[Rfam]
A member of the RNA family "MIR6274 microRNA precursor family" from Prunus yedoensis, 103 nucleotides long. Pairs were carried over by alignment from the consensus structure, which was predicted with RNAalifold. Lineage of the source: Eukaryota > Streptophytina > Magnoliopsida > Prunus > Prunus yedoensis.

RNA sequence: AGAUAACAUUUUUUGCUAUCCUCGACCAAUAAUGCAAUGACACGUAUGAUAUUUUCAACGUGUCAUUGUGUUAUUGGUCGGGAAUAGCAAAACAAUGAUAUCC
Dot-bracket structure: .((((.....(((((((((.(((((((((((((((((((((((((.(((.....)))))))))))))))))))))))))))).)))))))))......)))).
It scores 86 bits against the family's covariance model.